Shown here is a 91-nucleotide RNA sequence from Cuscuta campestris, a member of the family "Small nucleolar RNA Z159/U59". Rfam links the family to the GO terms RNA processing and nucleolus. Lineage of the source: Eukaryota > Tracheophyta > Magnoliopsida > Gunneridae > Cuscuta sect. Cleistogrammica. Pairs were carried over by alignment from the consensus structure, which was predicted with PFOLD.
RNA sequence: AUCUCUGGUGAUGCAAAACUUUGUAUACACUUUCGCCUUUUCCGAGUUAUCAGAAUGAGGAAAAUCGUUUGGAGACCUGAGCUGAAGAGAU
Numbered sequence: 001a002u003c004u005c006u007g008g009u010g011a012u013g014c015a016a017a018a019c020u021u022u023g024u025a026u027a028c029a030c031u032u033u034c035g036c037c038u039u040u041u042c043c044g045a046g047u048u049a050u051c052a053g054a055a056u057g058a059g060g061a062a063a064a065u066c067g068u069u070u071g072g073a074g075a076c077c078u079g080a081g082c083u084g085a086a087g088a089g090a091u
Stems, first nucleotide, its partner, number of pairs: 003089004